The family of this 82-nucleotide RNA sequence from Oryzias javanicus is "mir-221 microRNA precursor family".
RNA sequence: GCCGUCGGCUGCUCAGUAGGCAGUGUAGAUCCUGUGUAGUGAUCAGCAGCUACAUCUGGCUACUGGGUCUCUGACGCCGAUG
Numbered sequence: 001g002c003c004g005u006c007g008g009c010u011g012c013u014c015a016g017u018a019g020g021c022a023g024u025g026u027a028g029a030u031c032c033u034g035u036g037u038a039g040u041g042a043u044c045a046g047c048a049g050c051u052a053c054a055u056c057u058g059g060c061u062a063c064u065g066g067g068u069c070u071c072u073g074a075c076g077c078c079g080a081u082g
Stems, first nucleotide, its partner, number of pairs: 013066006021058002023055006032049004

Source information
Gene Ontology terms of the family: RISC complex and miRNA-mediated post-transcriptional gene silencing. For this family Rfam cites "Parallel DNA pyrosequencing unveils new zebrafish microRNAs" (Soares et al., BMC Genomics, 2009).